RNA: Bacterial RNase P class A
RNA sequence: GGAGCCGCUCGGGCGAACGCGUCGGUCUGCAGGAACGGGGGCCGCCGAGGAAAGUCCGAGCACCACAGGGCAGGGUGCCGGUUAACGACCGGUCGGGGCGACCCGCAGGACAGUGCCACAGAGAACAGACCGCCGAACGGCGUCCUGAGCUUGUCGAAGGACGCGCGUGGCAAGGGUGAAACGGUGCGGUAAGAGCGCACCGCGCGCCGGGUGACCGGCGCGGCACGGAAAACCCCACCCGGUGCAAGGGCAAAUAGGGAGGCGACCGGCCCGGUCAUUGCCUCCGGGUAUGGCCCGCUCGAGACGCGCGGCAACGCGCGUCCUAGAGGAAUGUUCGCCGCCGCGGGGAAACCCGCGGGACAGAACUCGGCUUACAGAGCGGCUCCGGCA
Numbered sequence: 001g002g003a004g005c006c007g008c009u010c011g012g013g014c015g016a017a018c019g020c021g022u023c024g025g026u027c028u029g030c031a032g033g034a035a036c037g038g039g040g041g042c043c044g045c046c047g048a049g050g051a052a053a054g055u056c057c058g059a060g061c062a063c064c065a066c067a068g069g070g071c072a073g074g075g076u077g078c079c080g081g082u083u084a085a086c087g088a089c090c091g092g093u094c095g096g097g098g099c100g101a102c103c104c105g106c107a108g109g110a111c112a113g114u115g116c117c118a119c120a121g122a123g124a125a126c127a128g129a130c131c132g133c134c135g136a137a138c139g140g141c142g143u144c145c146u147g148a149g150c151u152u153g154u155c156g157a158a159g160g161a162c163g164c165g166c167g168u169g170g171c172a173a174g175g176g177u178g179a180a181a182c183g184g185u186g187c188g189g190u191a192a193g194a195g196c197g198c199a200c201c202g203c204g205c206g207c208c209g210g211g212u213g214a215c216c217g218g219c220g221c222g223g224c225a226c227g228g229a230a231a232a233c234c235c236c237a238c239c240c241g242g243u244g245c246a247a248g249g250g251c252a253a254a255u256a257g258g259g260a261g262g263c264g265a266c267c268g269g270c271c272c273g274g275u276c277a278u279u280g281c282c283u284c285c286g287g288g289u290a291u292g293g294c295c296c297g298c299u300c301g302a303g304a305c306g307c308g309c310g311g312c313a314a315c316g317c318g319c320g321u322c323c324u325a326g327a328g329g330a331a332u333g334u335u336c337g338c339c340g341c342c343g344c345g346g347g348g349a350a351a352c353c354c355g356c357g358g359g360a361c362a363g364a365a366c367u368c369g370g371c372u373u374a375c376a377g378a379g380c381g382g383c384u385c386c387g388g389c390a
Stems, first nucleotide, its partner, number of pairs: 001386010011375001012339007020047002023044006052373003056370005061244004068272004073240005078092005093107001094105004108235002113233002116228002130175002132171004138165002183201006202224001203222008248296004258285006264276004303322008